[Rfam]
RNA sequence: CGCUUAUCAAGAGAGGUGGAGGGACUGGCCCUAUGAAGCCCAGCAACCGAUAUUAUUAAGGUAAUGUCAGGUGCUAAUUCCUGCGGUGUGUGCCGAAAGAUGAGGA
Numbered sequence: 001c002g003c004u005u006a007u008c009a010a011g012a013g014a015g016g017u018g019g020a021g022g023g024a025c026u027g028g029c030c031c032u033a034u035g036a037a038g039c040c041c042a043g044c045a046a047c048c049g050a051u052a053u054u055a056u057u058a059a060g061g062u063a064a065u066g067u068c069a070g071g072u073g074c075u076a077a078u079u080c081c082u083g084c085g086g087u088g089u090g091u092g093c094c095g096a097a098a099g100a101u102g103a104g105g106a
Stems, first nucleotide, its partner, number of pairs: 003104006013041001015040003021031003025083001027081002042075004047071002049068006079098001084095004